[Rfam]
RNA sequence: CCUGACUUUGACUCUUUCCUCAGGGUGCUAUUGGCAAAGCCGGGGAGCCAGGGAGAGACGUAAGUGAGG
Numbered sequence: 001c002c003u004g005a006c007u008u009u010g011a012c013u014c015u016u017u018c019c020u021c022a023g024g025g026u027g028c029u030a031u032u033g034g035c036a037a038a039g040c041c042g043g044g045g046a047g048c049c050a051g052g053g054a055g056a057g058a059c060g061u062a063a064g065u066g067a068g069g
Stems, first nucleotide, its partner, number of pairs: 002068002005065004013058008023049002026046001028044002031042001033040001
RNA: mir-711 microRNA precursor family